Rfam assigns this 64-nucleotide RNA sequence from Cladocopium goreaui to the family "mir-2 microRNA precursor family". Pairs were carried over by alignment from the consensus structure, which was predicted with PFOLD. The family has 56 seed sequences and 918 matches in Rfam 15.1. It scores 46 bits against the family's covariance model.
RNA sequence: UGUAUCAUCAAAUUGUUGGUGAUAUGUAUAUAUAUAUAUAUCACCAACAAUUUGAUGAUGCAUG
Numbered sequence: 001u002g003u004a005u006c007a008u009c010a011a012a013u014u015g016u017u018g019g020u021g022a023u024a025u026g027u028a029u030a031u032a033u034a035u036a037u038a039u040a041u042c043a044c045c046a047a048c049a050a051u052u053u054g055a056u057g058a059u060g061c062a063u064g
Stems, first nucleotide, its partner, number of pairs: 005058018025040003